About this RNA: Rfam assigns this 262-nucleotide sequence from Coprococcus sp. AF21-14LB to the family "Bacterial large signal recognition particle RNA".
RNA sequence: ACGUGCAGCCGGGGUGUUAGCGGUACCUUGUACCUACAAUCCGCUAUAGUGGGGGUGAUGUUACACGGAGGGCUUUCUUUUGCGAAGCUGCCUCUGGUAAGUGGCGUUGAUGUCUGGGUCUCACGCGGCGAGACUCUGUGAACCGUGUCAGGUCGGGAACGAAGCAGCACUAAGCAGAUGCUUUCGGGUGUUGUGAGGGUGCCUGGCUGAGUUUACUGCCAGAGUAACGUUCGGGGGAGACUGUUCGAAGUGUAACGCACGU
Numbered sequence: 001a002c003g004u005g006c007a008g009c010c011g012g013g014g015u016g017u018u019a020g021c022g023g024u025a026c027c028u029u030g031u032a033c034c035u036a037c038a039a040u041c042c043g044c045u046a047u048a049g050u051g052g053g054g055g056u057g058a059u060g061u062u063a064c065a066c067g068g069a070g071g072g073c074u075u076u077c078u079u080u081u082g083c084g085a086a087g088c089u090g091c092c093u094c095u096g097g098u099a100a101g102u103g104g105c106g107u108u109g110a111u112g113u114c115u116g117g118g119u120c121u122c123a124c125g126c127g128g129c130g131a132g133a134c135u136c137u138g139u140g141a142a143c144c145g146u147g148u149c150a151g152g153u154c155g156g157g158a159a160c161g162a163a164g165c166a167g168c169a170c171u172a173a174g175c176a177g178a179u180g181c182u183u184u185c186g187g188g189u190g191u192u193g194u195g196a197g198g199g200u201g202c203c204u205g206g207c208u209g210a211g212u213u214u215a216c217u218g219c220c221a222g223a224g225u226a227a228c229g230u231u232c233g234g235g236g237g238a239g240a241c242u243g244u245u246c247g248a249a250g251u252g253u254a255a256c257g258c259a260c261g262u
Base pairs, nucleotide, nucleotide: 001262002261003260004259005258006257008056009055010054011029012028013027014026015025016024017023018022033053034052035051036050037049061255062254063253064252065251066250070246071245072244073243076240077239078238079237080236081235083233084232085231089226090225093223094222095221096220097219098218101216102215103213104212105211112207114206115205116204117203118202119201120197121196122195123194124193125192126188129186130185131184132183133182135178136177137176138175139174145170146169147168148167153162154161155160
On this family, see Rosenblad et al., RNA Biol 2009: "Kinship in the SRP RNA family".
Pairs were carried over by alignment from the consensus structure, which is taken from published work.
NCBI's taxonomy places the organism under Bacteria, Bacillati, Bacillota, Clostridia, Coprococcus.
The family is grouped with related families in Rfam's "SRP clan".